Gammaproteobacterial sRNA STnc100: a 183-nucleotide sequence from Salmonella enterica. It is annotated as a small RNA. The source organism's lineage runs through Bacteria, Pseudomonadati, Enterobacterales, Salmonella and Salmonella enterica subsp. arizonae. Pairs were carried over by alignment from the consensus structure, which was predicted with CMfinder.
RNA sequence: UCAUAUUGUAAAAGUAUUAUUCGGAUUGUUGUAGUGAAUCCCACUAGCGUUGGGGCAUAAAUGGUUAACCUGCUUAUCAUGUGUGAUGCGGGUCAUUGUUAAUCAUUCAGUGACUCACCGGGUAGCGACCGGCACUGCAACUCUACUUACAGGUAGAUUGAAGAUGACCUCUUCUCUUUAAUC
Numbered sequence: 001u002c003a004u005a006u007u008g009u010a011a012a013a014g015u016a017u018u019a020u021u022c023g024g025a026u027u028g029u030u031g032u033a034g035u036g037a038a039u040c041c042c043a044c045u046a047g048c049g050u051u052g053g054g055g056c057a058u059a060a061a062u063g064g065u066u067a068a069c070c071u072g073c074u075u076a077u078c079a080u081g082u083g084u085g086a087u088g089c090g091g092g093u094c095a096u097u098g099u100u101a102a103u104c105a106u107u108c109a110g111u112g113a114c115u116c117a118c119c120g121g122g123u124a125g126c127g128a129c130c131g132g133c134a135c136u137g138c139a140a141c142u143c144u145a146c147u148u149a150c151a152g153g154u155a156g157a158u159u160g161a162a163g164a165u166g167a168c169c170u171c172u173u174c175u176c177u178u179u180a181a182u183c
Stems, first nucleotide, its partner, number of pairs: 014146003030139007041055002044052001061080003083089002090116004096110003118132004152182001154180001160174005